Description:
The family of this 578-nucleotide part of an RNA from Methanogenium marinum is "Archaeal large subunit ribosomal RNA". The organism belongs to Methanogenium, within Archaea. Pairs were carried over by alignment from the consensus structure, which is taken from published work. It scores 2902 bits against the family's covariance model.
RNA sequence: CUCCAAAUGGGAAGUGAAGACCCCGUGGAGCUUUACUGCAGCCUGUCGUUGUGUUACGGUAUUCAUUGCGCAGUGUAGAUGGGAGAUGUCGAUCCAACCCUCGUGGGGGUUGGUUAGUCACCAAUGAGACACCAUCCUUUGAUUACUGUAACACUAACUCCUUGUGAGGACAUCGGUAGGUAGGCAGUUUGGGUGGGGCGCCACACCCUCGAAAAGGUAUCAAGGGUGCCCCAAGGUCAACUCAUGUGAGUCAGAAACUCACAGAAGAGUGUCAAGAGCAAAAGUUGGCCUGACGUGAACACGCAAAGCAAGUGUUCACGAGAGGAAACUCGGGUCUAACGAACCAAUACGCGCUUUUGAUGAGUGCUAUUGACGACAGAAAAGCUACCCCGGGGAUAAUUGAGUCGUCGCCGGCAAGAGCACAUAUCGACCCGGCGGCUUGCUACCUCGAUGUCGGUUCUUUCCAUCCUGGCUGUGCAGCAGCAGCCAAGGGUGAGGUUGUUCGCCUAUUAAAGGGGAUCGUGAGCUGGGUUUAGACCGUCGUGAGACAGGUCGGUUACUAUCUAUUUGGAGUGUUA
Numbered sequence: 001c002u003c004c005a006a007a008u009g010g011g012a013a014g015u016g017a018a019g020a021c022c023c024c025g026u027g028g029a030g031c032u033u034u035a036c037u038g039c040a041g042c043c044u045g046u047c048g049u050u051g052u053g054u055u056a057c058g059g060u061a062u063u064c065a066u067u068g069c070g071c072a073g074u075g076u077a078g079a080u081g082g083g084a085g086a087u088g089u090c091g092a093u094c095c096a097a098c099c100c101u102c103g104u105g106g107g108g109g110u111u112g113g114u115u116a117g118u119c120a121c122c123a124a125u126g127a128g129a130c131a132c133c134a135u136c137c138u139u140u141g142a143u144u145a146c147u148g149u150a151a152c153a154c155u156a157a158c159u160c161c162u163u164g165u166g167a168g169g170a171c172a173u174c175g176g177u178a179g180g181u182a183g184g185c186a187g188u189u190u191g192g193g194u195g196g197g198g199c200g201c202c203a204c205a206c207c208c209u210c211g212a213a214a215a216g217g218u219a220u221c222a223a224g225g226g227u228g229c230c231c232c233a234a235g236g237u238c239a240a241c242u243c244a245u246g247u248g249a250g251u252c253a254g255a256a257a258c259u260c261a262c263a264g265a266a267g268a269g270u271g272u273c274a275a276g277a278g279c280a281a282a283a284g285u286u287g288g289c290c291u292g293a294c295g296u297g298a299a300c301a302c303g304c305a306a307a308g309c310a311a312g313u314g315u316u317c318a319c320g321a322g323a324g325g326a327a328a329c330u331c332g333g334g335u336c337u338a339a340c341g342a343a344c345c346a347a348u349a350c351g352c353g354c355u356u357u358u359g360a361u362g363a364g365u366g367c368u369a370u371u372g373a374c375g376a377c378a379g380a381a382a383a384g385c386u387a388c389c390c391c392g393g394g395g396a397u398a399a400u401u402g403a404g405u406c407g408u409c410g411c412c413g414g415c416a417a418g419a420g421c422a423c424a425u426a427u428c429g430a431c432c433c434g435g436c437g438g439c440u441u442g443c444u445a446c447c448u449c450g451a452u453g454u455c456g457g458u459u460c461u462u463u464c465c466a467u468c469c470u471g472g473c474u475g476u477g478c479a480g481c482a483g484c485a486g487c488c489a490a491g492g493g494u495g496a497g498g499u500u501g502u503u504c505g506c507c508u509a510u511u512a513a514a515g516g517g518g519a520u521c522g523u524g525a526g527c528u529g530g531g532u533u534u535a536g537a538c539c540g541u542c543g544u545g546a547g548a549c550a551g552g553u554c555g556g557u558u559a560c561u562a563u564c565u566a567u568u569u570g571g572a573g574u575g576u577u578a
Stems, first nucleotide, its partner, number of pairs: 001573008010565003014560002022394004027390002029386005035188004042180007051154011063142003068137001078136005085119003097110005158168003191204001192202003205227005230334002236289006242268002245263006269279002294320009322331001324329001345372005351367005403444003407441001408438007418428002455530001456528004460522001461519005468493002472487005496508004536554004540549003